[Rfam]
RNA sequence: CCUGCGGCGGAAGCAAUUCCGAAAAGGGCUGUUGCGCGGCGUGACCAUGCCGUGCGAGAACGACUUUACGUUCUCUGACUGAGCGCACCGGAUUCUCGGUGCGCUCCCUACGCGCCACGUCCCCGGAAGGGACGUGGCGCGUAGGUCU
Numbered sequence: 001c002c003u004g005c006g007g008c009g010g011a012a013g014c015a016a017u018u019c020c021g022a023a024a025a026g027g028g029c030u031g032u033u034g035c036g037c038g039g040c041g042u043g044a045c046c047a048u049g050c051c052g053u054g055c056g057a058g059a060a061c062g063a064c065u066u067u068a069c070g071u072u073c074u075c076u077g078a079c080u081g082a083g084c085g086c087a088c089c090g091g092a093u094u095c096u097c098g099g100u101g102c103g104c105u106c107c108c109u110a111c112g113c114g115c116c117a118c119g120u121c122c123c124c125g126g127a128a129g130g131g132a133c134g135u136g137g138c139g140c141g142u143a144g145g146u147c148u
Base pairs, nucleotide, nucleotide: 009020010019011018012017032077034055035054036053037052038051039050040049041048042047056075057074058073059072060071061070062069081106082105083104084103085102088099089098090097091096107145108144109143110142112140113139114138115137116136117135118134119133120132121131122130123129
Shown here is a 148-nucleotide RNA from Candidatus Burkholderia verschuerenii, a member of the family "sbcD RNA". The source organism's lineage runs through Bacteria, Pseudomonadota, Burkholderiales, Burkholderiaceae and Burkholderia. By type it is a small RNA.